[Rfam]
RNA sequence: UGGCGAAGUUUCCUGGGAGUGUGCUCAGCCUACUCCACCUCCUCUCAGUCUAGCCUAGAGUAAAGAGGCCAGAUGUGCCCCCCCACCCCCCCCAUGGGAGAGGCAUUUAAAUAAGAAGCCUCACCUGGGCUGUUCUAGCCUUAUAUUU
Numbered sequence: 001u002g003g004c005g006a007a008g009u010u011u012c013c014u015g016g017g018a019g020u021g022u023g024c025u026c027a028g029c030c031u032a033c034u035c036c037a038c039c040u041c042c043u044c045u046c047a048g049u050c051u052a053g054c055c056u057a058g059a060g061u062a063a064a065g066a067g068g069c070c071a072g073a074u075g076u077g078c079c080c081c082c083c084c085a086c087c088c089c090c091c092c093c094a095u096g097g098g099a100g101a102g103g104c105a106u107u108u109a110a111a112u113a114a115g116a117a118g119c120c121u122c123a124c125c126u127g128g129g130c131u132g133u134u135c136u137a138g139c140c141u142u143a144u145a146u147u148u
Base pairs, nucleotide, nucleotide: 002055003054004053006051015043016042017041018040019038020037021036023034065142066141067140068139069138071136072135073134086129087128088127096121097120098119
Source information: The family of this 148-nucleotide RNA sequence from Microcebus murinus is "Small Cajal body specific RNA 21". The family's RNA type in Rfam is small Cajal body RNA. Pairs were carried over by alignment from the consensus structure, which was predicted with RNAalifold. Gene Ontology terms of the family: nucleolus, Cajal body and RNA processing. It scores 110 bits against the family's covariance model. Lineage of the source: Eukaryota > Deuterostomia > Theria > Euarchontoglires > Microcebus. A reference for the family is Darzacq et al. (2002), "Cajal body-specific small nuclear RNAs: a novel class of 2'-O-methylation and pseudouridylation guide RNAs", EMBO J. The family has 24 seed sequences and 278 matches in Rfam 15.1. About the family: scaRNAs are a specific class of small nuclear RNAs which localise to the Cajal bodies and guide the modification of RNA polymerase II transcribed spliceosomal RNAs U1, U2, U4, U5 and U12. ACA68 (SCARNA21) is a member of the H/ACA class of snoRNAs that guide the sites of modification of uridines to pseudouridines. This snoRNA was identified by computational screening and its expression in mouse experimentally verified by Northern blot and primer extension analysis. ACA68 is proposed to guide the pseudouridylation of residue U19 in U12 snRNA.